The record is a 416-nucleotide sequence from Venturia inaequalis, which matches "Nuclear RNase P" in Rfam. A search with the family's covariance model found it, with a score of 35 bits. Rfam 15.1 lists 3,848 matches to the family in 1,862 species.
[Rfam]
Nucleotides: 416
Base pairs, nucleotide, nucleotide: 001416002415003414004413006408007407011328012327013326014325023089024088025087026086099399100398101397102396103395113281114280115279116278165176166175167174168173179192180191181190182189183188197275198274199273200272201271202270203269204268330387331386332385333384334383336381
Number, partner (000 for none) and nucleotide at each position: 001416g002415u003414c004413c005000u006408c007407a008000a009000c010000a011328u012327c013326g014325c015000c016000a017000c018000a019000u020000u021000u022000c023089u024088u025087u026086g027000c028000u029000a030000c031000a032000a033000c034000c035000a036000g037000a038000c039000a040000c041000c042000c043000g044000a045000g046000a047000c048000u049000g050000c051000c052000c053000c054000c055000c056000g057000g058000g059000g060000a061000a062000a063000c064000u065000c066000a067000g068000a069000g070000c071000c072000g073000u074000c075000g076000c077000a078000a079000c080000c081000c082000c083000a084000u085000g086026c087025a088024a089023a090000u091000g092000a093000g094000a095000a096000a097000u098000u099399c100398g101397g102396a103395g104000u105000a106000a107000u108000c109000u110000c111000u112000a113281c114280a115279c116278c117000a118000u119000c120000g121000c122000c123000a124000u125000c126000u127000c128000u129000u130000u131000u132000c133000c134000c135000u136000a137000g138000c139000u140000u141000g142000c143000a144000a145000c146000c147000a148000u149000c150000a151000g152000a153000g154000c155000u156000c157000u158000g159000g160000c161000a162000a163000c164000u165176g166175u167174c168173c169000u170000u171000g172000c173168g174167g175166a176165c177000c178000u179192g180191g181190c182189g183188c184000g185000a186000a187000a188183g189182c190181g191180c192179u193000u194000g195000c196000a197275c198274u199273c200272g201271g202270c203269a204268c205000a206000a207000g208000a209000a210000a211000a212000a213000u214000c215000u216000u217000c218000g219000g220000g221000g222000c223000u224000u225000c226000c227000c228000c229000c230000u231000u232000c233000c234000u235000u236000u237000a238000c239000a240000g241000u242000u243000g244000g245000g246000g247000u248000g249000u250000u251000c252000g253000c254000a255000a256000c257000c258000a259000u260000g261000g262000g263000a264000g265000c266000c267000g268204g269203u270202g271201c272200u273199g274198a275197g276000a277000u278116g279115g280114u281113g282000u283000g284000c285000g286000c287000a288000u289000u290000c291000u292000u293000c294000u295000u296000u297000g298000a299000a300000g301000g302000u303000g304000u305000g306000u307000g308000a309000c310000a311000c312000u313000u314000u315000a316000g317000u318000g319000c320000a321000a322000u323000a324000c325014g326013u327012g328011g329000c330387g331386u332385g333384c334383u335000g336381g337000a338000g339000u340000c341000g342000g343000g344000c345000g346000u347000u348000c349000u350000a351000c352000u353000u354000g355000u356000c357000c358000c359000u360000u361000g362000g363000a364000u365000a366000a367000a368000u369000g370000a371000g372000c373000g374000u375000g376000g377000a378000c379000u380000c381336c382000g383334a384333g385332u386331a387330c388000a389000a390000u391000u392000c393000g394000a395103u396102u397101c398100c399099g400000a401000u402000u403000a404000u405000u406000c407007u408006g409000u410000u411000g412000a413004g414003g415002a416001c